[Rfam]
RNA sequence: UUCCGCACGCUCCCUUAUCACUUCUUCCGCCGAGCUCGUGUCUCUGAGUCAGCUGGACGGAGAACUGAUAAGGGCCUGUGCCGAA
Numbered sequence: 001u002u003c004c005g006c007a008c009g010c011u012c013c014c015u016u017a018u019c020a021c022u023u024c025u026u027c028c029g030c031c032g033a034g035c036u037c038g039u040g041u042c043u044c045u046g047a048g049u050c051a052g053c054u055g056g057a058c059g060g061a062g063a064a065c066u067g068a069u070a071a072g073g074g075c076c077u078g079u080g081c082c083g084a085a
Stems, first nucleotide, its partner, number of pairs: 012074009022064006030056002
Rfam assigns this 85-nucleotide RNA from Branchiostoma belcheri to the family "mir-184 microRNA precursor family". On this family, see Chen et al., Genes Dev 2005: "The developmental miRNA profiles of zebrafish as determined by small RNA cloning". The base pairs follow the family's consensus structure, which was predicted with PFOLD. The sequence is in the family's curated seed alignment.